[Rfam]
RNA sequence: CGGGGAUGUCUCCUCGCCGUUAUCCAUGGAGGCACUCGAUCAUACUGUGGGUUGAAAAACCUUAGACGUGAGUCGUCGCUGGUAUGGUGUGAGGCGGGGUUAAAUGCCCU
Numbered sequence: 001c002g003g004g005g006a007u008g009u010c011u012c013c014u015c016g017c018c019g020u021u022a023u024c025c026a027u028g029g030a031g032g033c034a035c036u037c038g039a040u041c042a043u044a045c046u047g048u049g050g051g052u053u054g055a056a057a058a059a060c061c062u063u064a065g066a067c068g069u070g071a072g073u074c075g076u077c078g079c080u081g082g083u084a085u086g087g088u089g090u091g092a093g094g095c096g097g098g099g100u101u102a103a104a105u106g107c108c109c110u
Stems, first nucleotide, its partner, number of pairs: 001019003007034007035093004039088008049062005065077004096110005
Rfam assigns this 110-nucleotide RNA sequence from Gorillibacterium sp. to the family "epsC RNA". The family's consensus secondary structure is taken from published work. By type it is a cis-regulatory element. The family has 30 seed sequences and 450 matches in Rfam 15.1. The source organism's lineage runs through Bacteria, Bacillota, Bacilli, Caryophanales and Gorillibacterium.